[Rfam]
RNA sequence: GUGUCCCCUAGAGUUCCCCCGAAUACUUCAUUAGGAACGAUACAUAAAUUCUUUGAAGGAUUGCACCGUCUCUAUUGAAGUGUUUGGGGGAACUCCGGGUGUCAU
Number, nucleotide and partner (000 for none) at each position: 001g000002u000003g000004u000005c101006c000007c099008c098009u097010a000011g095012a094013g093014u092015u091016c090017c089018c088019c087020c086021g000022a085023a084024u082025a081026c080027u079028u078029c077030a076031u000032u074033a073034g072035g071036a000037a000038c000039g000040a000041u000042a000043c000044a000045u000046a000047a000048a000049u000050u000051c000052u000053u000054u000055g000056a000057a000058g000059g000060a000061u000062u000063g000064c000065a000066c000067c000068g000069u000070c000071u035072c034073u033074a032075u000076u030077g029078a028079a027080g026081u025082g024083u000084u023085u022086g020087g019088g018089g017090g016091a015092a014093c013094u012095c011096c000097g009098g008099g007100u000101g005102u000103c000104a000105u000
A member of the RNA family "mir-395 microRNA precursor family" from Malus baccata, 105 nucleotides long. Rfam 15.1 lists 2,798 matches to the family in 234 species. Rfam links the family to the GO terms RISC complex and miRNA-mediated post-transcriptional gene silencing. About the family: mir-395 was identified in both Arabidopsis thaliana and Oryza sativa computationally and was later experimentally verified. mir-395 is thought to target mRNAs coding for ATP sulphurylases. The mature sequence is excised from the 3' arm of the hairpin. A reference for the family is Jones-Rhoades and Bartel (2004), "Computational Identification of Plant MicroRNAs and Their Targets, Including a Stress-Induced miRNA", Mol Cell.